Annotation: Shown here is a 44-nucleotide RNA sequence from Paenibacillus lemnae, a member of the family "PreQ1 (pre queuosine) riboswitch aptamer". A search with the family's covariance model found it, with a score of 40 bits. The literature on the family includes a 2004 paper in J Biol Chem by Reader et al., "Identification of four genes necessary for biosynthesis of the modified nucleoside queuosine". Gene Ontology term of the family: queuosine biosynthetic process.
RNA sequence: AUGGGAGAGGUUCGCGAACUCCCUCUAUAAAAAACUACACGGUC
Dot-bracket structure: .....(((((.....[.....))))).........]........